This 139-nucleotide RNA from Virgisporangium aurantiacum belongs to the Rfam family "SAM riboswitch aptamer (S box leader)".
Rfam links the family to the GO term regulation of gene expression.
Pairs were carried over by alignment from the consensus structure, which is taken from published work.
RNA sequence: ACCUCAUCCAGAGGGGCUGAGGGACCGGCCCGUUGACGCCCCGGCAACCGCCGCGCAUACGUACCUCAUCGUCGAGGCCAGCGCGAGGCAGGUGCCAAUUCCGGCCCGUGGCACACCUAGUGCCCGGGAAAGAUGAGCA
Numbered sequence: 001a002c003c004u005c006a007u008c009c010a011g012a013g014g015g016g017c018u019g020a021g022g023g024a025c026c027g028g029c030c031c032g033u034u035g036a037c038g039c040c041c042c043g044g045c046a047a048c049c050g051c052c053g054c055g056c057a058u059a060c061g062u063a064c065c066u067c068a069u070c071g072u073c074g075a076g077g078c079c080a081g082c083g084c085g086a087g088g089c090a091g092g093u094g095c096c097a098a099u100u101c102c103g104g105c106c107c108g109u110g111g112c113a114c115a116c117c118u119a120g121u122g123c124c125c126g127g128g129a130a131a132g133a134u135g136a137g138c139a
Base pairs, nucleotide, nucleotide: 003137004136005135006134007133008132013042014041015040016039017038021031022030023029025104026103027102028101043096044095045094046093048092049091050089051088052087100131105128106127107126108125110123